[Rfam]
Rfam assigns this 108-nucleotide RNA from Jeotgalibacillus sp. R-1-5s-1 to the family "SAM riboswitch aptamer (S box leader)".
A search with the family's covariance model found it, with a score of 93 bits.

RNA sequence: UUCUUAUCAAGAGAGGUGGAGGGACAAGGCCCUGCGAAACCUCAGCAACCAUCACAAAAGUGAAAAGGUGCUAAAUCCAUCCCGCAUUUAUGACGGGGAAGAUAAGGA
Number, nucleotide and partner (000 for none) at each position: 001u108002u107003c106004u105005u104006a103007u102008c101009a000010a000011g000012a000013g043014a042015g041016g040017u039018g000019g000020a000021g032022g031023g030024a000025c000026a080027a000028g078029g077030c023031c022032c021033u000034g000035c000036g000037a000038a000039a017040c016041c015042u014043c013044a072045g071046c070047a069048a000049c068050c067051a000052u063053c062054a061055c000056a000057a000058a000059a000060g000061u054062g053063a052064a000065a000066a000067g050068g049069u047070g046071c045072u044073a000074a000075a000076u100077c029078c028079a000080u026081c097082c096083c095084g094085c000086a000087u000088u000089u000090a000091u000092g000093a000094c084095g083096g082097g081098g000099a000100a076101g008102a007103u006104a005105a004106g003107g002108a001